[Rfam]
RNA sequence: ACACACACGGAGAGCAGUGGCUGGCUCGGCGUCUCGGCACGGGGAAGUGCACCGCUGGCUGCCGAGUUUGACGAGAUCUGCAUCAAUGACGGUCGGCUUCUGCUUAAAGGUUGGGCGUUGCGGAGGAUCCUGACACUCUGUGGGGGGUUGGGGGUUGGGACUUAGUUGGCUGAUUGAGGAACAAUGCGUCAACCUGGGUUCUCCUGAUGAAGGCGGCAGGUGGAGACGGAUCCGGGUCCGGGACCCAUCUCGAGUUGGAGUCAAAGCUUUGUGCUUGUCUGGCGCUCGGAUUCUGUCUCCUUCGGCUCUCCAGAGUCGGAGCUCUCCAGGGAGCGCUUUGUUGUUCGAUGCCGGCUGGUUGGAAAAGGACGGGCCCUUGGGGGCGGUCCUGGUUGUCUUCUCUCCAGAAAUGGCGGGAAGACAACCCCUCAUUUUGGAGG
Numbered sequence: 001a002c003a004c005a006c007a008c009g010g011a012g013a014g015c016a017g018u019g020g021c022u023g024g025c026u027c028g029g030c031g032u033c034u035c036g037g038c039a040c041g042g043g044g045a046a047g048u049g050c051a052c053c054g055c056u057g058g059c060u061g062c063c064g065a066g067u068u069u070g071a072c073g074a075g076a077u078c079u080g081c082a083u084c085a086a087u088g089a090c091g092g093u094c095g096g097c098u099u100c101u102g103c104u105u106a107a108a109g110g111u112u113g114g115g116c117g118u119u120g121c122g123g124a125g126g127a128u129c130c131u132g133a134c135a136c137u138c139u140g141u142g143g144g145g146g147g148u149u150g151g152g153g154g155u156u157g158g159g160a161c162u163u164a165g166u167u168g169g170c171u172g173a174u175u176g177a178g179g180a181a182c183a184a185u186g187c188g189u190c191a192a193c194c195u196g197g198g199u200u201c202u203c204c205u206g207a208u209g210a211a212g213g214c215g216g217c218a219g220g221u222g223g224a225g226a227c228g229g230a231u232c233c234g235g236g237u238c239c240g241g242g243a244c245c246c247a248u249c250u251c252g253a254g255u256u257g258g259a260g261u262c263a264a265a266g267c268u269u270u271g272u273g274c275u276u277g278u279c280u281g282g283c284g285c286u287c288g289g290a291u292u293c294u295g296u297c298u299c300c301u302u303c304g305g306c307u308c309u310c311c312a313g314a315g316u317c318g319g320a321g322c323u324c325u326c327c328a329g330g331g332a333g334c335g336c337u338u339u340g341u342u343g344u345u346c347g348a349u350g351c352c353g354g355c356u357g358g359u360u361g362g363a364a365a366a367g368g369a370c371g372g373g374c375c376c377u378u379g380g381g382g383g384c385g386g387u388c389c390u391g392g393u394u395g396u397c398u399u400c401u402c403u404c405c406a407g408a409a410a411u412g413g414c415g416g417g418a419a420g421a422c423a424a425c426c427c428c429u430c431a432u433u434u435u436g437g438a439g440g
Stems, first nucleotide, its partner, number of pairs: 242262003245258003264276004
Dot-bracket structure: .................................................................................................................................................................................................................................................((((((........))).))).((((.....))))....................................................................................................................................................................